[Rfam]
RNA sequence: AACCCCCCACGUGGCGUCACCUCGCCCAAUCCCCCAGGGCCGGAAGGCAGCAAGGGUCAGUGAGCUCUGACGGGUGCGUGGGGGGCCUUU
Number, nucleotide and partner (000 for none) at each position: 001a089002a088003c000004c000005c085006c082007c081008c080009a079010c078011g077012u074013g000014g000015c072016g071017u070018c069019a068020c000021c064022u063023c062024g061025c060026c000027c000028a000029a000030u000031c056032c055033c054034c000035c000036a000037g000038g000039g048040c047041c046042g000043g000044a000045a000046g041047g040048c039049a000050g000051c000052a000053a000054g033055g032056g031057u000058c000059a000060g025061u024062g023063a022064g021065c000066u000067c000068u019069g018070a017071c016072g015073g000074g012075u000076g000077c011078g010079u009080g008081g007082g006083g000084g000085g005086c000087c000088u002089u001090u000

This 90-nucleotide RNA from Nocardioides sp. S5 belongs to the Rfam family "Bacterial small signal recognition particle RNA". By type it is a non-coding RNA gene.